This 109-nucleotide sequence from Loigolactobacillus rennini belongs to the Rfam family "PyrR binding site". Gene Ontology terms of the family: pyrimidine nucleobase transport and pyrimidine nucleobase biosynthetic process. The family's consensus secondary structure is taken from published work. The family has 41 seed sequences and 1,498 matches in Rfam 15.1. Rfam classes the family as a cis-regulatory element. About the family: This family represents the PyrR binding site and terminator structure. Taxonomically the source falls in Loigolactobacillus rennini (Bacteria, Bacillati, Bacillota, Lactobacillaceae). A search with the family's covariance model found it, with a score of 63 bits.
[Rfam]
RNA sequence: AACUCCUUUAAUUUAGUCCCGUGAGGCUAAUAAGGUACGAUUAAUUUAGGCACCGUCUAGCCUAAUAUUAGUGAAUCCUUCUGCCACGCGGGCAGAAGGAUUUUUUUUA
Numbered sequence: 001a002a003c004u005c006c007u008u009u010a011a012u013u014u015a016g017u018c019c020c021g022u023g024a025g026g027c028u029a030a031u032a033a034g035g036u037a038c039g040a041u042u043a044a045u046u047u048a049g050g051c052a053c054c055g056u057c058u059a060g061c062c063u064a065a066u067a068u069u070a071g072u073g074a075a076u077c078c079u080u081c082u083g084c085c086a087c088g089c090g091g092g093c094a095g096a097a098g099g100a101u102u103u104u105u106u107u108u109a
Base pairs, nucleotide, nucleotide: 005035006034007033008032013030014029015028016027017026018025042065047064048063049062050061051060073103074102075101076100077099078098079097080096081095082094083093084092085091